The record is a 99-nucleotide RNA sequence, which matches "SAM riboswitch aptamer (S box leader)" in Rfam. A reference for the family is Baird et al. (2012), "YbxF and YlxQ are bacterial homologs of L7Ae and bind K-turns but not K-loops", RNA.
RNA sequence: GGCUUAUAAAGAAAGAUGGAGGGAACUGACCCUGUGAAAUCUUAACAACCUACCCGUGAGGCAAGGUGUUACAUUCAGCCUUUUAUGGAAAAAUAAGCA
Number, nucleotide and partner (000 for none) at each position: 001g000002g098003c097004u096005u095006a094007u093008a000009a000010a000011g000012a000013a043014a042015g041016a040017u039018g000019g000020a000021g032022g031023g030024a000025a000026c078027u077028g076029a075030c023031c022032c021033u000034g000035u000036g000037a000038a000039a017040u016041c015042u014043u013044a070045a069046c068047a067048a000049c066050c065051u063052a000053c061054c060055c000056g000057u000058g000059a000060g054061g053062c000063a051064a000065g050066g049067u047068g046069u045070u044071a000072c000073a000074u091075u029076c028077a027078g026079c088080c087081u000082u000083u000084u000085a000086u000087g080088g079089a000090a000091a074092a000093a007094u006095a005096a004097g003098c002099a000